A member of the RNA family "Plant signal recognition particle RNA" from Ipomoea nil, 304 nucleotides long. Rfam 15.1 lists 4,988 matches to the family in 266 species. On this family, see Batey et al., Science 2000: "Crystal structure of the ribonucleoprotein core of the signal recognition particle". The match comes from Rfam's covariance-model search (179 bits). It is annotated as a non-coding RNA gene. Clan: SRP clan.

RNA sequence: GCUGGGCUUGGUAAUGCGAGCUUCUAACCCAAGUGGGAGCACUAAGAUGGUGGAAUAAUUAGGCUUGCCUGAAGGCUUGGGCUUGGGCUGCUAUCUUUUCUGGCAUGCUCAUUCCAAGUAGUUAGUUGGGCCGAGGAGUCUGAGCGAAAGCGUUGGCAUCUCGGUCCAUAGAACGACGGCACCGCGUGAGACUGAUUUCACAGAGAAACGAAAACCUCCACCUCUCUGCAGUGGAAGGAUAACCGGCCGGUGCAGUUCGGUCCAUUAGCGCCUGGCGGGCUGUCCAACUUGAACCAUCAUCUUU
Numbered sequence: 001g002c003u004g005g006g007c008u009u010g011g012u013a014a015u016g017c018g019a020g021c022u023u024c025u026a027a028c029c030c031a032a033g034u035g036g037g038a039g040c041a042c043u044a045a046g047a048u049g050g051u052g053g054a055a056u057a058a059u060u061a062g063g064c065u066u067g068c069c070u071g072a073a074g075g076c077u078u079g080g081g082c083u084u085g086g087g088c089u090g091c092u093a094u095c096u097u098u099u100c101u102g103g104c105a106u107g108c109u110c111a112u113u114c115c116a117a118g119u120a121g122u123u124a125g126u127u128g129g130g131c132c133g134a135g136g137a138g139u140c141u142g143a144g145c146g147a148a149a150g151c152g153u154u155g156g157c158a159u160c161u162c163g164g165u166c167c168a169u170a171g172a173a174c175g176a177c178g179g180c181a182c183c184g185c186g187u188g189a190g191a192c193u194g195a196u197u198u199c200a201c202a203g204a205g206a207a208a209c210g211a212a213a214a215c216c217u218c219c220a221c222c223u224c225u226c227u228g229c230a231g232u233g234g235a236a237g238g239a240u241a242a243c244c245g246g247c248c249g250g251u252g253c254a255g256u257u258c259g260g261u262c263c264a265u266u267a268g269c270g271c272c273u274g275g276c277g278g279g280c281u282g283u284c285c286a287a288c289u290u291g292a293a294c295c296a297u298c299a300u301c302u303u304u
Stems, first nucleotide, its partner, number of pairs: 001040003004023007028037003044303010056291002059287002062284003069278003074273002077270001079263005085257002088255003092252002100250005107243001109238002112236005118229004124223002128167009138157003142153001144151002175218002178215001185210003192203003